[Rfam]
RNA sequence: GCCCGAGUGGCGGAAUUGGCAGACGCGACGGUCUCAAAAACCGUUGAGGCAACUCGUGCGGGUUCGAGCCCCGCCUCGGGCA
Numbered sequence: 001g002c003c004c005g006a007g008u009g010g011c012g013g014a015a016u017u018g019g020c021a022g023a024c025g026c027g028a029c030g031g032u033c034u035c036a037a038a039a040a041c042c043g044u045u046g047a048g049g050c051a052a053c054u055c056g057u058g059c060g061g062g063u064u065c066g067a068g069c070c071c072c073g074c075c076u077c078g079g080g081c082a
Stems, first nucleotide, its partner, number of pairs: 001081007010026003028044005058074005

Rfam assigns this 82-nucleotide RNA sequence from Olsenella sp. An188 to the family "tRNA". Lineage of the source: Bacteria > Bacillati > Coriobacteriia > Coriobacteriales > Olsenella. It is annotated as a transfer RNA. The match comes from Rfam's covariance-model search (57 bits).